[Rfam]
A member of the RNA family "tRNA" from Atopostipes suicloacalis, 74 nucleotides long. Rfam describes the family as follows. Transfer RNA (tRNA) molecules are approximately 80 nucleotides in length. Gene Ontology term of the family: triplet codon-amino acid adaptor activity. It scores 60 bits against the family's covariance model. Pairs were carried over by alignment from the consensus structure, which is taken from published work. Taxonomically the source falls in Atopostipes suicloacalis (Bacteria, Bacillati, Bacillota, Atopostipes).

RNA sequence: GGCCCCGUAGUGUAGCGGUUUACCACGCCUCCCUGUCACGGAGGAGAUCGCCGGUUCAAAUCCGGUCGGGGUCG
Numbered sequence: 001g002g003c004c005c006c007g008u009a010g011u012g013u014a015g016c017g018g019u020u021u022a023c024c025a026c027g028c029c030u031c032c033c034u035g036u037c038a039c040g041g042a043g044g045a046g047a048u049c050g051c052c053g054g055u056u057c058a059a060a061u062c063c064g065g066u067c068g069g070g071g072u073c074g
Stems, first nucleotide, its partner, number of pairs: 001073007010026003028044005050066005